[Rfam]
RNA sequence: GGGUAUGUGACGACAAACCAAAGUCAUGAAGAGAGUUGACGAUAUAAAAUCCAUGCUCAAUAGGGUUAUGCUGAGGCCC
Numbered sequence: 001g002g003g004u005a006u007g008u009g010a011c012g013a014c015a016a017a018c019c020a021a022a023g024u025c026a027u028g029a030a031g032a033g034a035g036u037u038g039a040c041g042a043u044a045u046a047a048a049a050u051c052c053a054u055g056c057u058c059a060a061u062a063g064g065g066u067u068a069u070g071c072u073g074a075g076g077c078c079c
Stems, first nucleotide, its partner, number of pairs: 001079004008070002
Rfam assigns this 79-nucleotide RNA sequence from Mesocricetus auratus to the family "Small nucleolar RNA SNORD115". The base pairs follow the family's consensus structure, which was predicted with PFOLD. It is annotated as a C/D-box small nucleolar RNA. Gene Ontology terms of the family: nucleolus and RNA processing.